[Rfam]
RNA sequence: UGUCUGCCAUGAUGAAAUGCAAUUUCAGUCCGUGUUUCAGCUGAUUACCCUGAUUGCAUGCAUACUCUGAGCAGACU
Dot-bracket structure: .((((((...............................................................)))))).

The record is a 77-nucleotide RNA from Monodelphis domestica, which matches "Small nucleolar RNA SNORD126" in Rfam.
On this family, see Yang et al., Nucleic Acids Res 2006: "snoSeeker: an advanced computational package for screening of guide and orphan snoRNA genes in the human genome".
Pairs were carried over by alignment from the consensus structure, which was predicted with WAR.
The sequence is in the family's curated seed alignment.